[Rfam]
Nucleotides: 214
Stems, first nucleotide, its partner, number of pairs: 007027003011023004048067006070085003074082001076080001119168002121164004171207003176202001178200006
Number, partner (000 for none) and nucleotide at each position: 001000a002000c003000a004000u005000c006000u007027u008026c009025u010000c011023g012022g013021c014020c015000u016000u017000c018000g019000u020014g021013g022012c023011u024000a025009a026008g027007a028000u029000c030000a031000a032000g033000u034000g035000u036000a037000g038000u039000a040000u041000c042000u043000g044000u045000u046000c047000u048067u049066a050065u051064c052063a053062g054000c055000u056000u057000a058000a059000u060000c061000u062053c063052u064051g065050g066049u067048a068000g069000u070085g071084g072083g073000c074082c075000u076080c077000a078000a079000u080076g081000u082074g083072c084071c085070u086000c087000a088000c089000a090000a091000c092000u093000c094000a095000a096000g097000a098000u099000u100000a101000g102000a103000c104000u105000u106000a107000u108000u109000u110000c111000u112000u113000g114000u115000g116000g117000g118000c119168g120167c121164c122163c123162u124161g125000g126000c127000a128000c129000u130000a131000a132000g133000u134000c135000c136000c137000u138000u139000g140000c141000a142000g143000c144000u145000g146000a147000g148000c149000u150000g151000u152000a153000g154000g155000g156000c157000g158000g159000u160000c161124c162123a163122g164121g165000g166000a167120g168119c169000a170000g171207u172206g173205a174000u175000c176202a177000g178200c179199u180198u181197c182196a183195c184000a185000u186000u187000g188000c189000a190000c191000c192000c193000c194000u195183g196182u197181g198180a199179a200178g201000u202176u203000c204000u205173u206172c207171a208000a209000a210000u211000g212000g213000u214000c

Background:
A member of the RNA family "U2 spliceosomal RNA" from Acanthamoeba castellanii, 214 nucleotides long. It scores 95 bits against the family's covariance model. By type it is a spliceosomal small nuclear RNA.